[Rfam]
RNA sequence: UCUAUUUACGUGCCUAAUUCUUUGUUUUUGUAAGAAACGGGGGAACCACCUAGGGUGAAUUGCUCAAGGAUUAUCCUACAGCAUAGGGAUCUUCAACCGAACCCAUAAGCUAACCUCGUAGGCAGCGAAGGGAGAAGCA
Numbered sequence: 001u002c003u004a005u006u007u008a009c010g011u012g013c014c015u016a017a018u019u020c021u022u023u024g025u026u027u028u029u030g031u032a033a034g035a036a037a038c039g040g041g042g043g044a045a046c047c048a049c050c051u052a053g054g055g056u057g058a059a060u061u062g063c064u065c066a067a068g069g070a071u072u073a074u075c076c077u078a079c080a081g082c083a084u085a086g087g088g089a090u091c092u093u094c095a096a097c098c099g100a101a102c103c104c105a106u107a108a109g110c111u112a113a114c115c116u117c118g119u120a121g122g123c124a125g126c127g128a129a130g131g132g133a134g135a136a137g138c139a
Base pairs, nucleotide, nucleotide: 011124012123013122014121018036019035020034021033022032037119038118039117040116041115042114053104054103055102061083062082063081064080086098087097